[Rfam]
RNA sequence: AAUAUCCUUCGGGGCGGGGUGAAAUUCCCGACCGGCGGUGAUAGGGGGACAUGCCCCUUCAGUCCGUGAGCUGCGGUUCGUCUGAACCAAUGCUGACCUGGUGCAAUUCCGGGACCGACAGUAUAGUCUGGAUGGGAGAAGGAUCGA
Numbered sequence: 001a002a003u004a005u006c007c008u009u010c011g012g013g014g015c016g017g018g019g020u021g022a023a024a025u026u027c028c029c030g031a032c033c034g035g036c037g038g039u040g041a042u043a044g045g046g047g048g049a050c051a052u053g054c055c056c057c058u059u060c061a062g063u064c065c066g067u068g069a070g071c072u073g074c075g076g077u078u079c080g081u082c083u084g085a086a087c088c089a090a091u092g093c094u095g096a097c098c099u100g101g102u103g104c105a106a107u108u109c110c111g112g113g114a115c116c117g118a119c120a121g122u123a124u125a126g127u128c129u130g131g132a133u134g135g136g137a138g139a140a141g142g143a144u145c146g147a
Stems, first nucleotide, its partner, number of pairs: 004144007017029003031127002033117002035067004062115002070093002097113005119130003
Dot-bracket structure: ...(((((((......(((.......))).[[((((((.......................[[))))..((....................))...(((((.......)))))]])).(((....]]))).......)))))))...